[Rfam]
FMN riboswitch aptamer (RFN element): a 114-nucleotide RNA sequence from Firmicutes bacterium CAG:308. The organism belongs to Bacillota, within Bacteria.
RNA sequence: AUAAAUCUUCAGGGCAGAGUGAAAUUCUCGACCGGUGGUAUAGCCCACGAGCCGUAAGGUUGAUUCGGUGCAACUCCGAAGCCGACAGUAUAGUCUGGAUGAAAGAAGAUGCUU
Numbered sequence: 001a002u003a004a005a006u007c008u009u010c011a012g013g014g015c016a017g018a019g020u021g022a023a024a025u026u027c028u029c030g031a032c033c034g035g036u037g038g039u040a041u042a043g044c045c046c047a048c049g050a051g052c053c054g055u056a057a058g059g060u061u062g063a064u065u066c067g068g069u070g071c072a073a074c075u076c077c078g079a080a081g082c083c084g085a086c087a088g089u090a091u092a093g094u095c096u097g098g099a100u101g102a103a104a105g106a107a108g109a110u111g112c113u114u
Stems, first nucleotide, its partner, number of pairs: 005110006017029003031094002033084002035048004043082002051060003064080005086097003